[Rfam]
RNA: tRNA
RNA sequence: GGGUAAUUAACUCAAUUGGUAGAGUAUUCGUUUUACACACGAAAGGUUAAAGGUUCAAAUCCUUUAUUGCCUA
Numbered sequence: 001g002g003g004u005a006a007u008u009a010a011c012u013c014a015a016u017u018g019g020u021a022g023a024g025u026a027u028u029c030g031u032u033u034u035a036c037a038c039a040c041g042a043a044a045g046g047u048u049a050a051a052g053g054u055u056c057a058a059a060u061c062c063u064u065u066a067u068u069g070c071c072u073a
Stems, first nucleotide, its partner, number of pairs: 001072007010025004027043005049065005
Dot-bracket structure: (((((((..((((........)))).(((((.......))))).....(((((.......)))))))))))).